[Rfam]
RNA sequence: UGCGCUAUGGCAGUGUGGUUAGCUGGUUGUGUUUAGAAGUCAAUCACAGCCACUAUCCUCCCUGCCGCCGCGAC
Numbered sequence: 001u002g003c004g005c006u007a008u009g010g011c012a013g014u015g016u017g018g019u020u021a022g023c024u025g026g027u028u029g030u031g032u033u034u035a036g037a038a039g040u041c042a043a044u045c046a047c048a049g050c051c052a053c054u055a056u057c058c059u060c061c062c063u064g065c066c067g068c069c070g071c072g073a074c
Stems, first nucleotide, its partner, number of pairs: 003072003009066002012063002015060001017058002020055003024052008

Shown here is a 74-nucleotide RNA sequence from Hermetia illucens, a member of the family "mir-34 microRNA precursor family". Rfam 15.1 lists 2,256 matches to the family in 820 species. The family's consensus secondary structure was predicted with RNAalifold. On this family, see Dostie et al., RNA 2003: "Numerous microRNPs in neuronal cells containing novel microRNAs". Human mir-34a was discovered computationally and later experimentally verified. The mature sequence is excised from the 5' arm of the hairpin. Lineage of the source: Eukaryota > Opisthokonta > Endopterygota > Stratiomyidae > Hermetia. Clan: mir-34 clan.